[Rfam]
Nucleotides: 131
Base pairs, nucleotide, nucleotide: 003060004059005058006057007056008055010051011050018045019044020043021042022041023040024039026035027034028033071124072123073122074121075120076119078117082112083111084110086108087107088106089105
Number, partner (000 for none) and nucleotide at each position: 001000c002000u003060g004059g005058a006057g007056g008055a009000g010051u011050a012000a013000g014000a015000a016000a017000g018045u019044g020043c021042g022041g023040c024039c025000c026035g027034u028033g029000g030000u031000g032000c033028u034027g035026u036000a037000u038000u039024g040023g041022c042021u043020g044019c045018g046000c047000u048000g049000a050011u051010a052000c053000g054000a055008u056007c057006c058005u059004c060003c061000u062000a063000a064000a065000g066000c067000a068000a069000a070000c071124g072123g073122u074121g075120g076119g077000a078117g079000a080000g081000c082112a083111g084110g085000g086108c087107c088106u089105g090000c091000c092000u093000g094000g095000g096000a097000g098000a099000g100000a101000a102000a103000g104000c105089c106088a107087g108086g109000g110084c111083c112082u113000a114000c115000u116000u117078c118000c119076c120075c121074u122073g123072c124071c125000g126000a127000c128000a129000g130000g131000g